Background:
Rfam assigns this 192-nucleotide RNA sequence from uncultured Prochlorococcus sp. to the family "permuted transfer-messenger RNA".
[Rfam]
RNA sequence: GGUGAUCCACACCAAUGUUUCGGACAGCGGUUCGAUUCCGCUCAGCUCCAUUACACCUCAUAAUCACUAGGGGCUGCAAUGGUUUCGACGGAGCAUCAGGAGGGUGACUGAAGCCUGCUCGGUAAGAGCAAACUCGUAACAGCGAACAACAUCGUUCGUUUCUCCCGUCAAUCAGCCCCUGUUGCUGCCUGA
Numbered sequence: 001g002g003u004g005a006u007c008c009a010c011a012c013c014a015a016u017g018u019u020u021c022g023g024a025c026a027g028c029g030g031u032u033c034g035a036u037u038c039c040g041c042u043c044a045g046c047u048c049c050a051u052u053a054c055a056c057c058u059c060a061u062a063a064u065c066a067c068u069a070g071g072g073g074c075u076g077c078a079a080u081g082g083u084u085u086c087g088a089c090g091g092a093g094c095a096u097c098a099g100g101a102g103g104g105u106g107a108c109u110g111a112a113g114c115c116u117g118c119u120c121g122g123u124a125a126g127a128g129c130a131a132a133c134u135c136g137u138a139a140c141a142g143c144g145a146a147c148a149a150c151a152u153c154g155u156u157c158g159u160u161u162c163u164c165c166c167g168u169c170a171a172u173c174a175g176c177c178c179c180u181g182u183u184g185c186u187g188c189c190u191g192a
Stems, first nucleotide, its partner, number of pairs: 001109003005105001016095003020091003026042005043076007
Rfam links the family to the GO term RNA catabolic process.